[Rfam]
RNA: Acido-Lenti-1 RNA
Organism: Pirellulaceae bacterium
RNA sequence: CCCGGCCCUAAUGGGCCGGGCUAUUACAUGCCGGUCCUUCGGACCU
Numbered sequence: 001c002c003c004g005g006c007c008c009u010a011a012u013g014g015g016c017c018g019g020g021c022u023a024u025u026a027c028a029u030g031c032c033g034g035u036c037c038u039u040c041g042g043a044c045c046u
Stems, first nucleotide, its partner, number of pairs: 001020008033045005